[Rfam]
RNA sequence: UGGAGUUAUUUCUUCUCCUUUAUCAACAGAAAUACUCGUCCAUGCCGUGGGUGCAGCAGCACCUUAGACGCGAGUCGUCAUUAGUAUGGAGUGAGGGUGGGUUGAAUGCCUA
Dot-bracket structure: .[[[..(((((((..]]].........)))))))(((((((((((...((((((....))))))..((((.....))))....))))))).))))..(((((.....)))))
Numbered sequence: 001u002g003g004a005g006u007u008a009u010u011u012c013u014u015c016u017c018c019u020u021u022a023u024c025a026a027c028a029g030a031a032a033u034a035c036u037c038g039u040c041c042a043u044g045c046c047g048u049g050g051g052u053g054c055a056g057c058a059g060c061a062c063c064u065u066a067g068a069c070g071c072g073a074g075u076c077g078u079c080a081u082u083a084g085u086a087u088g089g090a091g092u093g094a095g096g097g098u099g100g101g102u103u104g105a106a107u108g109c110c111u112a
Stems, first nucleotide, its partner, number of pairs: 002018003007034007035095004039090007049064006067079004098112005
Rfam assigns this 112-nucleotide RNA sequence from Alkalicoccus daliensis to the family "epsC RNA". It scores 95 bits against the family's covariance model.